[Rfam]
RNA sequence: GAAGCUCCAACAAAUGGAUAAGACUUUGUCUUAGUGUAUAGGAGUUUUUGAAAAUAGAAUAGAAAAAUAUAAGGAGCAAUAAACUCUUUCUUGUUCUAUCAAGAGGGGUUAUUGCUCCUUUAUU
Numbered sequence: 001g002a003a004g005c006u007c008c009a010a011c012a013a014a015u016g017g018a019u020a021a022g023a024c025u026u027u028g029u030c031u032u033a034g035u036g037u038a039u040a041g042g043a044g045u046u047u048u049u050g051a052a053a054a055u056a057g058a059a060u061a062g063a064a065a066a067a068u069a070u071a072a073g074g075a076g077c078a079a080u081a082a083a084c085u086c087u088u089u090c091u092u093g094u095u096c097u098a099u100c101a102a103g104a105g106g107g108g109u110u111a112u113u114g115c116u117c118c119u120u121u122a123u124u
Stems, first nucleotide, its partner, number of pairs: 006018002061121001071120012084107003089104004
RNA: Plastid-psbA-1 3UTR RNA
Organism: Rehmannia glutinosa